[Rfam]
RNA sequence: UGCAAGUAUUUUACGAUUAAGAAGCAACGGCCUCUUGUACAUAUUAUUUAUUAAUCG
Numbered sequence: 001u002g003c004a005a006g007u008a009u010u011u012u013a014c015g016a017u018u019a020a021g022a023a024g025c026a027a028c029g030g031c032c033u034c035u036u037g038u039a040c041a042u043a044u045u046a047u048u049u050a051u052u053a054a055u056c057g
Stems, first nucleotide, its partner, number of pairs: 018037005024031002
Plastid-rps18 3UTR RNA: a 57-nucleotide RNA sequence from Stephania japonica. About the family: Plastid rps18 is a non-coding RNA (ncRNA) present in plastids. A reference for the family is Richter et al. (2023), "Retrograde signaling in plants: A critical review focusing on the GUN pathway and beyond", Plant Commun.